[Rfam]
RNA sequence: CAGUGGGGUAGAGGUGCAGCGGGCAAGAGUACCGCCGGUGAGGUUUCGGGCACCUGUGAGACGGCGAGAAAGGGUACGCUGCCGAAGGGAGAAGAGAACCCGAGGCCUUCUCCCUGGGCCGGUUUCUGAAAAAGGACCGGACUGUCACCAUAAAAUAAUGGUGGAGCGCUACUCGCACG
Numbered sequence: 001c002a003g004u005g006g007g008g009u010a011g012a013g014g015u016g017c018a019g020c021g022g023g024c025a026a027g028a029g030u031a032c033c034g035c036c037g038g039u040g041a042g043g044u045u046u047c048g049g050g051c052a053c054c055u056g057u058g059a060g061a062c063g064g065c066g067a068g069a070a071a072g073g074g075u076a077c078g079c080u081g082c083c084g085a086a087g088g089g090a091g092a093a094g095a096g097a098a099c100c101c102g103a104g105g106c107c108u109u110c111u112c113c114c115u116g117g118g119c120c121g122g123u124u125u126c127u128g129a130a131a132a133a134g135g136a137c138c139g140g141a142c143u144g145u146c147a148c149c150a151u152a153a154a155a156u157a158a159u160g161g162u163g164g165a166g167c168g169c170u171a172c173u174c175g176c177a178c179g
Base pairs, nucleotide, nucleotide: 006174007173008172009171010170011169016082017081018080019079020078021077023075024074033066034065035064036063037062039060086115087114088113089112090111091110092109093108094107116143117142119140120139121138122137123136124135125134145164146163147162148161149160150159151158
RNA: Lysine riboswitch aptamer